RNA: Small nucleolar RNA SNORD116
RNA sequence: GGAUCGAUGAUGACUCCUCCAUAAACCUUCCUUGGAAAAGCUGAACAAAAUGAUUGAAAAUUCUCUACCGUCUCUCUCAUCGAAACUGAGGUCC
Dot-bracket structure: (((((....................(..((.(((...........)))...))..).................................)))))